A member of the RNA family "pan motif" from Desulfosporosinus orientis, 99 nucleotides long. By type it is a cis-regulatory element. The source organism's lineage runs through Bacteria, Bacillati, Bacillota, Eubacteriales and Desulfosporosinus orientis. The family's consensus secondary structure is taken from published work.
RNA sequence: CAGACGAUAUCAAUUCGAGUCGUACUGAUUUCAGGAAAAGGAAUUAUCAUAUUAUUUAUUAAAUAAAGCCGCUUGGAUCUAAAGGACCGAGACGGAGGA
Numbered sequence: 001c002a003g004a005c006g007a008u009a010u011c012a013a014u015u016c017g018a019g020u021c022g023u024a025c026u027g028a029u030u031u032c033a034g035g036a037a038a039a040g041g042a043a044u045u046a047u048c049a050u051a052u053u054a055u056u057u058a059u060u061a062a063a064u065a066a067a068g069c070c071g072c073u074u075g076g077a078u079c080u081a082a083a084g085g086a087c088c089g090a091g092a093c094g095g096a097g098g099a
Stems, first nucleotide, its partner, number of pairs: 001027003004023005010018002069095003072091005078086002